[Rfam]
RNA sequence: ACCCUUGACACAUGAUGAUAUUAUCACCUACAUACUCGCAGGUCUCAGUCACGAGUAUGACAGCUUUGUUGCCUCAUUAACAGCACGAAUUGACAGCAUUUCACUUGAAGAGAUUUAUUCUCUUCUACUGACAACUGAAGC
Numbered sequence: 001a002c003c004c005u006u007g008a009c010a011c012a013u014g015a016u017g018a019u020a021u022u023a024u025c026a027c028c029u030a031c032a033u034a035c036u037c038g039c040a041g042g043u044c045u046c047a048g049u050c051a052c053g054a055g056u057a058u059g060a061c062a063g064c065u066u067u068g069u070u071g072c073c074u075c076a077u078u079a080a081c082a083g084c085a086c087g088a089a090u091u092g093a094c095a096g097c098a099u100u101u102c103a104c105u106u107g108a109a110g111a112g113a114u115u116u117a118u119u120c121u122c123u124u125c126u127a128c129u130g131a132c133a134a135c136u137g138a139a140g141c
Stems, first nucleotide, its partner, number of pairs: 004140003008136001090108004
Rfam assigns this 141-nucleotide RNA from Salix viminalis to the family "Small nucleolar RNA Z247". A reference for the family is Chen et al. (2003), "The high diversity of snoRNAs in plants: identification and comparative study of 120 snoRNA genes from Oryza sativa", Nucleic Acids Res. By type it is a C/D-box small nucleolar RNA. Pairs were carried over by alignment from the consensus structure, which was predicted with PFOLD.